Rfam assigns this 74-nucleotide sequence from Parambassis ranga to the family "Small nucleolar RNA SNORD99". NCBI's taxonomy places the organism under Eukaryota, Metazoa, Neopterygii, Acanthomorphata, Parambassis. Its family is annotated with RNA processing and nucleolus in the Gene Ontology.
[Rfam]
RNA sequence: UCUGAUCCAUGAUGACAACUUUAACAUAUGGUGACUGCUGGAUGAGACUUGCGGAUAUGGGGCUGAGAUCACAC
Number, nucleotide and partner (000 for none) at each position: 001u073002c000003u071004g070005a069006u000007c000008c000009a000010u000011g000012a000013u000014g000015a000016c000017a000018a000019c000020u000021u000022u000023a000024a000025c000026a000027u000028a000029u000030g000031g000032u000033g000034a000035c000036u000037g000038c000039u000040g000041g000042a000043u000044g000045a000046g000047a000048c000049u000050u000051g000052c000053g000054g000055a000056u000057a000058u000059g000060g000061g000062g000063c000064u000065g000066a000067g000068a000069u005070c004071a003072c000073a001074c000

The family is grouped with related families in Rfam's "SNORD58 clan".